[Rfam]
RNA sequence: AAAUGCCAUUAGGUAUCUGAUGCUUAGCCUAGUAAUAGUGUGGCUGGGUAUCUCGUAAUUAUGGCGGAUAUUGAAGGGUAUAACAGGAAUUGCGACACUGGUCGCUCUUGUUCUAUGAGCUUCUUGUUACUUACUCCCUGUUUACAUCU
Numbered sequence: 001a002a003a004u005g006c007c008a009u010u011a012g013g014u015a016u017c018u019g020a021u022g023c024u025u026a027g028c029c030u031a032g033u034a035a036u037a038g039u040g041u042g043g044c045u046g047g048g049u050a051u052c053u054c055g056u057a058a059u060u061a062u063g064g065c066g067g068a069u070a071u072u073g074a075a076g077g078g079u080a081u082a083a084c085a086g087g088a089a090u091u092g093c094g095a096c097a098c099u100g101g102u103c104g105c106u107c108u109u110g111u112u113c114u115a116u117g118a119g120c121u122u123c124u125u126g127u128u129a130c131u132u133a134c135u136c137c138c139u140g141u142u143u144a145c146a147u148c149u
Base pairs, nucleotide, nucleotide: 004066005065006064007063008062009061019052020051021050022049023048024047025046026045027044028043029042031041082142083141084140085139086138097127098126100124101123104120105119106118
The family of this 149-nucleotide RNA sequence from Ananas comosus is "Small nucleolar RNA F1/F2/snoR5a". Pairs were carried over by alignment from the consensus structure, which was predicted with PFOLD. This family contains F1, F2 and snoR5a sequences, all of which are members of the the H/ACA class of snoRNA that guide the sites of modification of uridines to pseudouridines. Rfam links the family to the GO terms nucleolus and RNA processing.